[Rfam]
RNA: Group II catalytic intron D1-D4-3
Organism: Cryomorpha ignava
RNA sequence: UUUGUUGCGAAACAAGGAGUGAAGGAAGCAGGACUGCAAAAUUCGGUAUCCCGAUGGAUCGGGAAAACCGCAUAUUAGGCUAUUGAUAGUGGGUAAGUGAGCACAUCUUCACAAUGCCUGUGACCAACAAACUAUCGGUAGUAGAUGCGGCAGGAAUCGAAGGAAGGAUAAUGUC
Numbered sequence: 001u002u003u004g005u006u007g008c009g010a011a012a013c014a015a016g017g018a019g020u021g022a023a024g025g026a027a028g029c030a031g032g033a034c035u036g037c038a039a040a041a042u043u044c045g046g047u048a049u050c051c052c053g054a055u056g057g058a059u060c061g062g063g064a065a066a067a068c069c070g071c072a073u074a075u076u077a078g079g080c081u082a083u084u085g086a087u088a089g090u091g092g093g094u095a096a097g098u099g100a101g102c103a104c105a106u107c108u109u110c111a112c113a114a115u116g117c118c119u120g121u122g123a124c125c126a127a128c129a130a131a132c133u134a135u136c137g138g139u140a141g142u143a144g145a146u147g148c149g150g151c152a153g154g155a156a157u158c159g160a161a162g163g164a165a166g167g168a169u170a171a172u173g174u175c
Base pairs, nucleotide, nucleotide: 001016002015003014004013005012006011028175031172037167042161043160044159045158046157049155050154051153053151068150069149070148071147072146073145079142080141081140083138084137085136086135087134088133089132091119092118093117094116097112098111099110100109